[Rfam]
Overview:
This 99-nucleotide RNA sequence from Paenibacillus dendrobii belongs to the Rfam family "Glycine riboswitch aptamer". Rfam links the family to the GO term glycine biosynthetic process. On this family, see Mandal et al., Science 2004: "A glycine-dependent riboswitch that uses cooperative binding to control gene expression". The source organism's lineage runs through Bacteria, Bacillati, Bacillota, Paenibacillaceae and Paenibacillus. From the family's description: This family represents the bacterial glycine riboswitch.

RNA sequence: AUGAAGGUAAUGGGAGAGAUUACUGAUUAUUAGUGACGCCGAAGGAGUAAGCCCUUGCAAGAGGGUGAAUCUCUCAGGCAAAAGGACCAUUAUUGGACG
Numbered sequence: 001a002u003g004a005a006g007g008u009a010a011u012g013g014g015a016g017a018g019a020u021u022a023c024u025g026a027u028u029a030u031u032a033g034u035g036a037c038g039c040c041g042a043a044g045g046a047g048u049a050a051g052c053c054c055u056u057g058c059a060a061g062a063g064g065g066u067g068a069a070u071c072u073c074u075c076a077g078g079c080a081a082a083a084g085g086a087c088c089a090u091u092a093u094u095g096g097a098c099g
Stems, first nucleotide, its partner, number of pairs: 006094008020036004038079003041075002045073003051066005